This 132-nucleotide RNA sequence from Bos taurus belongs to the Rfam family "Small nucleolar RNA SNORA72". The source organism's lineage runs through Eukaryota, Vertebrata, Dipnotetrapodomorpha, Ruminantia and Bos. Rfam classes the family as an H/ACA-box small nucleolar RNA. For this family Rfam cites "The family of box ACA small nucleolar RNAs is defined by an evolutionarily conserved secondary structure and ubiquitous sequence elements essential for RNA accumulation" (Ganot et al., Genes Dev, 1997). About the family: U72 is a member of the H/ACA class of snoRNAs. The snoRNA gene is located in intron 4 of the ribosomal L30 protein gene in human, mouse and chicken.

RNA sequence: CUGCAAAUAUUCUCACUGUUCUGAUUUUGCGAUAAUUAGGGCAGGCCAAAUGUUCACUAUGUUAGGACCGUGCAUGUGUCCCCAGAUCUAGUUCUUUACCUAGGUCUCGUUUUAUAAAUGCUGGUGAUAAAC
Dot-bracket structure: ..(............(((((((((((.......)))))))))))............).........((((.((........(.((((((((........)))))))).)..........)))))).......
Numbered sequence: 001c002u003g004c005a006a007a008u009a010u011u012c013u014c015a016c017u018g019u020u021c022u023g024a025u026u027u028u029g030c031g032a033u034a035a036u037u038a039g040g041g042c043a044g045g046c047c048a049a050a051u052g053u054u055c056a057c058u059a060u061g062u063u064a065g066g067a068c069c070g071u072g073c074a075u076g077u078g079u080c081c082c083c084a085g086a087u088c089u090a091g092u093u094c095u096u097u098a099c100c101u102a103g104g105u106c107u108c109g110u111u112u113u114a115u116a117a118a119u120g121c122u123g124g125u126g127a128u129a130a131a132c
Stems, first nucleotide, its partner, number of pairs: 003057001016044011067125004072121002082109001084107008